[Rfam]
RNA: ALIL pseudoknot
Nucleotides: 117
Base pairs, nucleotide, nucleotide: 016032017031018030019029020028079116080115081114082113089112090111092109093108094107095106096105097104
Number, partner (000 for none) and nucleotide at each position: 001000u002000g003000c004000g005000u006000u007000u008000u009000u010000c011000g012000c013000c014000c015000a016032g017031g018030c019029g020028g021000a022000g023000c024000a025000g026000g027000g028020c029019c030018g031017c032016c033000g034000a035000u036000u037000g038000a039000a040000g041000u042000c043000a044000u045000g046000a047000g048000g049000g050000a051000c052000u053000u054000c055000a056000u057000c058000a059000a060000c061000c062000a063000g064000c065000a066000u067000c068000g069000c070000g071000a072000u073000g074000c075000c076000u077000a078000u079116g080115g081114g082113g083000u084000c085000g086000a087000g088000c089112c090111g091000c092109u093108c094107u095106g096105c097104a098000a099000a100000g101000u102000c103000c104097u105096g106095c107094a108093g109092a110000u111090c112089g113082c114081c115080c116079c117000u